[Rfam]
Nucleotides: 086
Stems, first nucleotide, its partner, number of pairs: 012037002017032006040080004047076002049072003056066003
Number, partner (000 for none) and nucleotide at each position: 001000u002000u003000a004000c005000c006000g007000a008000a009000a010000a011000g012037g013036c014000a015000a016000a017032c018031c019030u020029u021028g022027g023000g024000a025000a026000a027022u028021c029020a030019a031018g032017g033000g034000u035000c036013g037012c038000a039000a040080a041079g042078c043077u044000a045000u046000a047076g048075g049072g050071g051070c052000u053000u054000c055000c056066u057065c058064u059000a060000a061000c062000a063000a064058a065057g066056a067000g068000u069000u070051g071050c072049u073000c074000g075048c076047c077043a078042g079041u080040u081000g082000c083000c084000g085000a086000a